[Rfam]
RNA sequence: UACGUGUUCCGGGGUCGGUGCAAGUCCGAACCGGCGGUGACAGCCCGCGACCCUCUGACGCUCGCAGGAGCGGACGAGGUUGAUUCGGUGGAACUCCGAGGCCGACAGUCAAAGUCUGGAUGGGAGGAACGCGCG
Numbered sequence: 001u002a003c004g005u006g007u008u009c010c011g012g013g014g015u016c017g018g019u020g021c022a023a024g025u026c027c028g029a030a031c032c033g034g035c036g037g038u039g040a041c042a043g044c045c046c047g048c049g050a051c052c053c054u055c056u057g058a059c060g061c062u063c064g065c066a067g068g069a070g071c072g073g074a075c076g077a078g079g080u081u082g083a084u085u086c087g088g089u090g091g092a093a094c095u096c097c098g099a100g101g102c103c104g105a106c107a108g109u110c111a112a113a114g115u116c117u118g119g120a121u122g123g124g125a126g127g128a129a130c131g132c133g134c135g
Base pairs, nucleotide, nucleotide: 003133004132005131006130007129008128009127010126016028017027018026030115031114032104033103034048035047036046037045043102044101052079053078054077055076084100085099086098087097088096106118107117108116
Dot-bracket structure: ..((((((((.....(((.......))).[[((((((.....[[))))...((((....................))))....(((((.......)))))]])).(((.....]]))).......))))))))..
This 135-nucleotide RNA from Tessaracoccus antarcticus belongs to the Rfam family "FMN riboswitch aptamer (RFN element)". A search with the family's covariance model found it, with a score of 97 bits.